Rfam assigns this 131-nucleotide RNA from Myotis davidii to the family "Small nucleolar RNA SNORA38". Rfam links the family to the GO terms RNA processing, nucleolus and Cajal body. Rfam classes the family as an H/ACA-box small nucleolar RNA. ACA38 is a member of the H/ACA class of snoRNA that guide the sites of modification of uridines to pseudouridines. NCBI's taxonomy places the organism under Eukaryota, Deuterostomia, Tetrapoda, Laurasiatheria, Myotis.
[Rfam]
RNA sequence: CCAUGCGACAAAGGCAUGUCUGUGGUUCCCUGUCUUUGGACAUAAAACAAUUGGAGGCAAAGAAAUAUGGAUGUGGAGAAAUCUGGAGCCCGCUUGCUCCCUGCAGGCUCAAGACCAACCAUCCCACAUUG
Numbered sequence: 001c002c003a004u005g006c007g008a009c010a011a012a013g014g015c016a017u018g019u020c021u022g023u024g025g026u027u028c029c030c031u032g033u034c035u036u037u038g039g040a041c042a043u044a045a046a047a048c049a050a051u052u053g054g055a056g057g058c059a060a061a062g063a064a065a066u067a068u069g070g071a072u073g074u075g076g077a078g079a080a081a082u083c084u085g086g087a088g089c090c091c092g093c094u095u096g097c098u099c100c101c102u103g104c105a106g107g108c109u110c111a112a113g114a115c116c117a118a119c120c121a122u123c124c125c126a127c128a129u130u131g
Stems, first nucleotide, its partner, number of pairs: 002057001004055001006053001016043006024030002069124003092108006